[Rfam]
RNA: c-di-AMP riboswitch aptamer (ydaO/yuaA leader)
RNA sequence: AUUCAUCCAAAGCCGAGUCCGUGUAGUCAUGAGGCACGGAGCCGGGGAACCAUCGGCCGCGCGGCAAUCGCGCGGCAAGGGGUGAAUCGGCGCGACGGGGGGAGUGCUCCCGUGGCUCCGUAGGGCGUCCUUCCCAGCCCGAACCCGUCAGCUAACCCGGUAGGCGCGAGCGGAAGACCCU
Numbered sequence: 001a002u003u004c005a006u007c008c009a010a011a012g013c014c015g016a017g018u019c020c021g022u023g024u025a026g027u028c029a030u031g032a033g034g035c036a037c038g039g040a041g042c043c044g045g046g047g048a049a050c051c052a053u054c055g056g057c058c059g060c061g062c063g064g065c066a067a068u069c070g071c072g073c074g075g076c077a078a079g080g081g082g083u084g085a086a087u088c089g090g091c092g093c094g095a096c097g098g099g100g101g102g103a104g105u106g107c108u109c110c111c112g113u114g115g116c117u118c119c120g121u122a123g124g125g126c127g128u129c130c131u132u133c134c135c136a137g138c139c140c141g142a143a144c145c146c147g148u149c150a151g152c153u154a155a156c157c158c159g160g161u162a163g164g165c166g167c168g169a170g171c172g173g174a175a176g177a178c179c180c181u
Stems, first nucleotide, its partner, number of pairs: 012165003018040007041161006051079001080146003088120003123140004